[Rfam]
This 97-nucleotide RNA sequence from Acidihalobacter aeolianus belongs to the Rfam family "Bacterial small signal recognition particle RNA". Lineage of the source: Bacteria > Pseudomonadota > Gammaproteobacteria > Chromatiales > Acidihalobacter. It is annotated as a non-coding RNA gene. From the family's description: The signal recognition particle (SRP) is a universally conserved ribonucleoprotein involved in the co-translational targeting of proteins to membranes. Pairs were carried over by alignment from the consensus structure, which is taken from published work. A reference for the family is Righetti et al. (2016), "Temperature-responsive in vitro RNA structurome of Yersinia pseudotuberculosis", Proc Natl Acad Sci U S A. It scores 72 bits against the family's covariance model.
RNA sequence: GCAUCGGCCCCUCGCAACGAUAAACUGUAAACCCCGCCAGGCCCGGAAGGGAGCAACGGUAGCAGUGAUCUCGUGUGCCGGGGUGUGCUGGUGCGGG
Numbered sequence: 001g002c003a004u005c006g007g008c009c010c011c012u013c014g015c016a017a018c019g020a021u022a023a024a025c026u027g028u029a030a031a032c033c034c035c036g037c038c039a040g041g042c043c044c045g046g047a048a049g050g051g052a053g054c055a056a057c058g059g060u061a062g063c064a065g066u067g068a069u070c071u072c073g074u075g076u077g078c079c080g081g082g083g084u085g086u087g088c089u090g091g092u093g094c095g096g097g
Stems, first nucleotide, its partner, number of pairs: 004091005010083005015075001017074004022069001024066005034059003042051003